[Rfam]
RNA sequence: UUCAGAGACAAAGGUUUGUUUACGAAGCUUUACAUGAGGCCACCGUGCCUCAGUGCUUAUGCACUAAUGCUUUGGGGAAAGUCUCCGGCCGCAUUCACGGAAACGUAACGGAAUUUAAACCCCGUUUACACAUCCAUCCAGCCUUCAUGCCUCUGUUGAAUCCGCUUUUCUGUGGGAAAACUGUCCAUUUGACACUUAACACAAGACACUGCGUCCUGCCUUUUUCUUAAAUCCUACUGAGCCAACCCCUUUCGGGUCUUGUCGGUUAUGCCGAUGGCUACUGGAGGUUGAAUUUGGUGGGGUCUCGGUGCUUAAUCAUUGGACGGUUUUUCUACAUUCAGGAAAUUCUGGAUUUUACGGUCGGCCGGGGGUACGGGUGUUUGUGUUCCCUUGGUUUCCCACGGGGAGCUGAGGUUCAACCUUUCGGCAUUGGGAUUGUGUAUCCUAAACGAUAGUUAUAACAGACAGCCACGCGUCUGUGGCUAACACAAUGGAGCUCACUCUUGUCUUUGA
Numbered sequence: 001u002u003c004a005g006a007g008a009c010a011a012a013g014g015u016u017u018g019u020u021u022a023c024g025a026a027g028c029u030u031u032a033c034a035u036g037a038g039g040c041c042a043c044c045g046u047g048c049c050u051c052a053g054u055g056c057u058u059a060u061g062c063a064c065u066a067a068u069g070c071u072u073u074g075g076g077g078a079a080a081g082u083c084u085c086c087g088g089c090c091g092c093a094u095u096c097a098c099g100g101a102a103a104c105g106u107a108a109c110g111g112a113a114u115u116u117a118a119a120c121c122c123c124g125u126u127u128a129c130a131c132a133u134c135c136a137u138c139c140a141g142c143c144u145u146c147a148u149g150c151c152u153c154u155g156u157u158g159a160a161u162c163c164g165c166u167u168u169u170c171u172g173u174g175g176g177a178a179a180a181c182u183g184u185c186c187a188u189u190u191g192a193c194a195c196u197u198a199a200c201a202c203a204a205g206a207c208a209c210u211g212c213g214u215c216c217u218g219c220c221u222u223u224u225u226c227u228u229a230a231a232u233c234c235u236a237c238u239g240a241g242c243c244a245a246c247c248c249c250u251u252u253c254g255g256g257u258c259u260u261g262u263c264g265g266u267u268a269u270g271c272c273g274a275u276g277g278c279u280a281c282u283g284g285a286g287g288u289u290g291a292a293u294u295u296g297g298u299g300g301g302g303u304c305u306c307g308g309u310g311c312u313u314a315a316u317c318a319u320u321g322g323a324c325g326g327u328u329u330u331u332c333u334a335c336a337u338u339c340a341g342g343a344a345a346u347u348c349u350g351g352a353u354u355u356u357a358c359g360g361u362c363g364g365c366c367g368g369g370g371g372u373a374c375g376g377g378u379g380u381u382u383g384u385g386u387u388c389c390c391u392u393g394g395u396u397u398c399c400c401a402c403g404g405g406g407a408g409c410u411g412a413g414g415u416u417c418a419a420c421c422u423u424u425c426g427g428c429a430u431u432g433g434g435a436u437u438g439u440g441u442a443u444c445c446u447a448a449a450c451g452a453u454a455g456u457u458a459u460a461a462c463a464g465a466c467a468g469c470c471a472c473g474c475g476u477c478u479g480u481g482g483c484u485a486a487c488a489c490a491a492u493g494g495a496g497c498u499c500a501c502u503c504u505u506g507u508c509u510u511u512g513a
Stems, first nucleotide, its partner, number of pairs: 002513010014466006023074006036051005080498002083496004097106003393437003399433003404430001408428004412422004468483006